[Rfam]
RNA sequence: UGCACUUUAUCGCUGAGUCCUUGAAUUUAAAAGGAACGGGGGAACCAAAGAAGCGCGUGAUACCUGAUUCGAUCAUUUCGUAGUCAGAUACACGAGCUUCAUGGGGUGAAUCCUCUGGGCAUCUUCGAUGCCCGGGGGUAGGGCUACUCUCUAGCCCGAAUCCGACAGCUAACCUCGUAAGCGUAUAGGGAGAGGCAAC
Dot-bracket structure: ..........((((...(((((........)))))((((((....((......................................................))(((.....((((((((((((...))))))))))))..((((.........))))...))).........)))))).))))................
Source information
A member of the RNA family "c-di-AMP riboswitch aptamer (ydaO/yuaA leader)" from Paenibacillus sp. FSL H7-0331, 199 nucleotides long. NCBI's taxonomy places the organism under Bacteria, Bacilli, Caryophanales, Paenibacillaceae, Paenibacillus.